[Rfam]
RNA: Lysine riboswitch aptamer
RNA sequence: UCAUAUGGUAGAGGCGCAUCCUUUAUCAGUACCCUUGGGGAUACACCAGAUGUAGGCGAUCCAAGGGGAAAGGAACGGAUGCCGAAGGCCGUCGGGACUGGAACCGGCGCCCUGGUUGCUUGGUUAAGAGCCCUGCGACUGUCAUAGGACAAGGCUUCCUUGUCUAUGGAGUGCUACUGAAGAU
Numbered sequence: 001u002c003a004u005a006u007g008g009u010a011g012a013g014g015c016g017c018a019u020c021c022u023u024u025a026u027c028a029g030u031a032c033c034c035u036u037g038g039g040g041a042u043a044c045a046c047c048a049g050a051u052g053u054a055g056g057c058g059a060u061c062c063a064a065g066g067g068g069a070a071a072g073g074a075a076c077g078g079a080u081g082c083c084g085a086a087g088g089c090c091g092u093c094g095g096g097a098c099u100g101g102a103a104c105c106g107g108c109g110c111c112c113u114g115g116u117u118g119c120u121u122g123g124u125u126a127a128g129a130g131c132c133c134u135g136c137g138a139c140u141g142u143c144a145u146a147g148g149a150c151a152a153g154g155c156u157u158c159c160u161u162g163u164c165u166a167u168g169g170a171g172u173g174c175u176a177c178u179g180a181a182g183a184u
Stems, first nucleotide, its partner, number of pairs: 006179006016082006023075002032067008086113003090109006114140006122132003142169007